This 66-nucleotide RNA from Pongo pygmaeus belongs to the Rfam family "mir-1292 microRNA precursor family". The source organism's lineage runs through Eukaryota, Metazoa, Eumetazoa, Simiiformes and Pongo. Its family is annotated with miRNA-mediated post-transcriptional gene silencing and RISC complex in the Gene Ontology.
[Rfam]
RNA sequence: CCUGGGAGCGGGUUCCGGCAGACGCUGAGGUUGCGUUGACGCUCGCGCCCCGGCUCCCGUUCCAGG
Numbered sequence: 001c002c003u004g005g006g007a008g009c010g011g012g013u014u015c016c017g018g019c020a021g022a023c024g025c026u027g028a029g030g031u032u033g034c035g036u037u038g039a040c041g042c043u044c045g046c047g048c049c050c051c052g053g054c055u056c057c058c059g060u061u062c063c064a065g066g
Stems, first nucleotide, its partner, number of pairs: 001066005007061006015053004021048001023047003027044003030040003